Shown here is a 111-nucleotide RNA sequence from Planomicrobium sp. CPCC 101110, a member of the family "SAM riboswitch aptamer (S box leader)". Taxonomically the source falls in Planomicrobium (Bacteria, Bacillati, Bacillota, Bacilli). It scores 99 bits against the family's covariance model.
[Rfam]
RNA sequence: UUCUUAUCAAGAGAGGUCGAGGAACUGGUCCGAUGAAACCUCAGCAACCUGCCGUCCCUAAAGACGGCAAAGGUGCUAAUUCCAGCAAGUUUUUUACUUGAUAGAUAAGAA
Numbered sequence: 001u002u003c004u005u006a007u008c009a010a011g012a013g014a015g016g017u018c019g020a021g022g023a024a025c026u027g028g029u030c031c032g033a034u035g036a037a038a039c040c041u042c043a044g045c046a047a048c049c050u051g052c053c054g055u056c057c058c059u060a061a062a063g064a065c066g067g068c069a070a071a072g073g074u075g076c077u078a079a080u081u082c083c084a085g086c087a088a089g090u091u092u093u094u095u096a097c098u099u100g101a102u103a104g105a106u107a108a109g110a111a
Stems, first nucleotide, its partner, number of pairs: 001111008013042005021031003025085004043077004048073002050069006081103001086100005
The SAM riboswitch is found upstream of a number of genes which code for proteins involved in methionine or cysteine biosynthesis in Gram-positive bacteria.